Shown here is a 47-nucleotide RNA sequence from Salmo salar, a member of the family "Histone 3' UTR stem-loop". The organism belongs to Salmo, within Eukaryota. Rfam links the family to the GO term mRNA 3'-end processing by stem-loop binding and cleavage. The family's RNA type in Rfam is cis-regulatory element. A reference for the family is Williams and Marzluff (1995), "The sequence of the stem and flanking sequences at the 3' end of histone mRNA are critical determinants for the binding of the stem-loop binding protein", Nucleic Acids Res. The family has 50 seed sequences and 44,596 matches in Rfam 15.1. A search with the family's covariance model found it, with a score of 40 bits.
[Rfam]
RNA sequence: CGAAAGGCUCUUUUAAGAGCCACCUAAUACAUGAAAUAAGUGUGUGU
Numbered sequence: 001c002g003a004a005a006g007g008c009u010c011u012u013u014u015a016a017g018a019g020c021c022a023c024c025u026a027a028u029a030c031a032u033g034a035a036a037u038a039a040g041u042g043u044g045u046g047u
Stems, first nucleotide, its partner, number of pairs: 006021006